[Rfam]
RNA sequence: UAGCUCAGUUGGUAGAGCAGUUGACUUUUAAUCAAUUGGUCGCAGGUUCGAAUCCUGCACGACCCACCAUCAUUUAAAGAAGAUGAUGGAUGUAAGGAAGUGAAGGAUAACAACGCGCAAGCGUUGGCCCGAAGGGCGAUGCCAGAGGCCGAGUCAUCCUGCACGACCCACCA
Numbered sequence: 001u002a003g004c005u006c007a008g009u010u011g012g013u014a015g016a017g018c019a020g021u022u023g024a025c026u027u028u029u030a031a032u033c034a035a036u037u038g039g040u041c042g043c044a045g046g047u048u049c050g051a052a053u054c055c056u057g058c059a060c061g062a063c064c065c066a067c068c069a070u071c072a073u074u075u076a077a078a079g080a081a082g083a084u085g086a087u088g089g090a091u092g093u094a095a096g097g098a099a100g101u102g103a104a105g106g107a108u109a110a111c112a113a114c115g116c117g118c119a120a121g122c123g124u125u126g127g128c129c130c131g132a133a134g135g136g137c138g139a140u141g142c143c144a145g146a147g148g149c150c151g152a153g154u155c156a157u158c159c160u161g162c163a164c165g166a167c168c169c170a171c172c173a
Stems, first nucleotide, its partner, number of pairs: 015164001017162004022156001037138002040136002047133004055105001111126006
RNA: RtT RNA
Organism: Chimaeribacter arupi